[Rfam]
RNA sequence: AACGCACCACAACGGCUUCCUGACGUGGCGCAAGUUUUAUAUUGGAGCA
Numbered sequence: 001a002a003c004g005c006a007c008c009a010c011a012a013c014g015g016c017u018u019c020c021u022g023a024c025g026u027g028g029c030g031c032a033a034g035u036u037u038u039a040u041a042u043u044g045g046a047g048c049a
Stems, first nucleotide, its partner, number of pairs: 004031002007028004013022002015048003019045002
RNA: SAM/SAH riboswitch aptamer
Organism: Sulfitobacter guttiformis